[Rfam]
RNA sequence: CCGGCACCCAUGACGGUCGGCCUGAAAACCAGCGCGCUGGUGGGACUGACCCGAGAACCGGCGUG
Numbered sequence: 001c002c003g004g005c006a007c008c009c010a011u012g013a014c015g016g017u018c019g020g021c022c023u024g025a026a027a028a029c030c031a032g033c034g035c036g037c038u039g040g041u042g043g044g045a046c047u048g049a050c051c052c053g054a055g056a057a058c059c060g061g062c063g064u065g
Stems, first nucleotide, its partner, number of pairs: 001065001004062002015051006022044002030039003

Rfam assigns this 65-nucleotide RNA sequence from Equus asinus to the family "Selenocysteine insertion sequence 1". The family's RNA type in Rfam is cis-regulatory element. It scores 36 bits against the family's covariance model. The family's consensus secondary structure is taken from published work. From the family's description: The incorporation of selenocysteine into a protein sequence is directed by an in-frame UGA codon (usually a stop codon) within the coding region of the mRNA. Selenoprotein mRNAs contain a conserved secondary structure in the 3' UTR that is required for the distinction of UGA stop from UGA selenocysteine. The source organism's lineage runs through Eukaryota, Teleostomi, Tetrapoda, Eutheria and Equus.